[Rfam]
RNA sequence: GUUGUGAAGGCAGUGUUGUUAGCUGAUUGUUUCCACACACCAAUCACUAGCAACACUACCAGUACAAC
Numbered sequence: 001g002u003u004g005u006g007a008a009g010g011c012a013g014u015g016u017u018g019u020u021a022g023c024u025g026a027u028u029g030u031u032u033c034c035a036c037a038c039a040c041c042a043a044u045c046a047c048u049a050g051c052a053a054c055a056c057u058a059c060c061a062g063u064a065c066a067a068c
Base pairs, nucleotide, nucleotide: 002067003066004065005064006063009060010059012057013056014055015054016053017052018051019050020049021048022047024046025045026044027043028042029041031039